DsrA RNA: an 87-nucleotide RNA. The family's RNA type in Rfam is small RNA. Pairs were carried over by alignment from the consensus structure, which is taken from published work. From the family's description: DsrA RNA regulates both transcription, by overcoming transcriptional silencing by the nucleoid-associated H-NS protein, and translation, by promoting efficient translation of the stress sigma factor, RpoS. These two activities of DsrA can be separated by mutation: the first of three stem-loops of the 85 nucleotide RNA is necessary for RpoS translation but not for anti-H-NS action, while the second stem-loop is essential for antisilencing and less critical for RpoS translation. Gene Ontology terms of the family: positive regulation of translation and mRNA transcription.
RNA sequence: CCUGCAUCAGAUUUCCUGGUGUAACGAAUUUACAAGUGCUUCUUGCAUAAGCAAGUUUGAUCCCGGUCAUCCCCAUGACCGGGAUUU
Numbered sequence: 001c002c003u004g005c006a007u008c009a010g011a012u013u014u015c016c017u018g019g020u021g022u023a024a025c026g027a028a029u030u031u032a033c034a035a036g037u038g039c040u041u042c043u044u045g046c047a048u049a050a051g052c053a054a055g056u057u058u059g060a061u062c063c064c065g066g067u068c069a070u071c072c073c074c075a076u077g078a079c080c081g082g083g084a085u086u087u
Base pairs, nucleotide, nucleotide: 004022005021006020007019008018009017010016026058027057028056029054030053031051034048036046037045038044060085061084062083063082064081065080066079069076070075